Shown here is a 119-nucleotide RNA, a member of the family "Group II catalytic intron D1-D4-2".
From the family's description: Group II introns are found in rRNA, tRNA and mRNA of organelles in fungi, plants and protists, and also in mRNA in bacteria.
Gene Ontology term of the family: Group II intron splicing.
The family has 144 seed sequences and 1,231 matches in Rfam 15.1.
RNA sequence: GGGAGUGUAUGGCCUCCCGAUGCCUGCCUGCAGGGGCUGGCAUCAAACCACCCCAUGCUGCUGCGGUCAAAAGUCGUGGUGGUUAGCGUUGGGGAAAAGGCGGACUUGAUCCGUCAGGU
Numbered sequence: 001g002g003g004a005g006u007g008u009a010u011g012g013c014c015u016c017c018c019g020a021u022g023c024c025u026g027c028c029u030g031c032a033g034g035g036g037c038u039g040g041c042a043u044c045a046a047a048c049c050a051c052c053c054c055a056u057g058c059u060g061c062u063g064c065g066g067u068c069a070a071a072a073g074u075c076g077u078g079g080u081g082g083u084u085a086g087c088g089u090u091g092g093g094g095a096a097a098a099g100g101c102g103g104a105c106u107u108g109a110u111c112c113g114u115c116a117g118g119u
Base pairs, nucleotide, nucleotide: 001018002017003016004015005014019044020043021042022041023040024039026037027036028035029034049118051094052093053092054091055090057083058082060080061079062078064076065075066074067073099115100114101113102112103111